Notes
This 98-nucleotide RNA from Parapusillimonas granuli belongs to the Rfam family "traJ-II RNA". Rfam classes the family as a cis-regulatory element.
[Rfam]
RNA sequence: AGGCAAGAUGUGUGUUGUACGGGUACGGGCAAGCCCGUCCCCAUCCAACACCGCCCCUUACUCACCUUCGGUUCGACGGCAUCUUGCUCUGCGAGGCU
Numbered sequence: 001a002g003g004c005a006a007g008a009u010g011u012g013u014g015u016u017g018u019a020c021g022g023g024u025a026c027g028g029g030c031a032a033g034c035c036c037g038u039c040c041c042c043a044u045c046c047a048a049c050a051c052c053g054c055c056c057c058u059u060a061c062u063c064a065c066c067u068u069c070g071g072u073u074c075g076a077c078g079g080c081a082u083c084u085u086g087c088u089c090u091g092c093g094a095g096g097c098u
Stems, first nucleotide, its partner, number of pairs: 002088008012051006019044001021042001025038005056079002064072003